This 72-nucleotide RNA from Cnephaeus nilssonii belongs to the Rfam family "mir-9209 microRNA precursor family". The organism belongs to Cnephaeus, within Eukaryota. Gene Ontology terms of the family: RISC complex and miRNA-mediated post-transcriptional gene silencing. The family's consensus secondary structure was predicted with RNAalifold. The match comes from Rfam's covariance-model search (91 bits).
[Rfam]
RNA sequence: AGGGCAGUGGUCGGCAAACUGCGGCUCGCAAGCCACAUGCGGCUCACGAGCCGUGGUUUGCCGCUCUGUUGA
Dot-bracket structure: ..(((((.((.(((((((((((((((((..((((......))))..))))))))))))))))))))))))..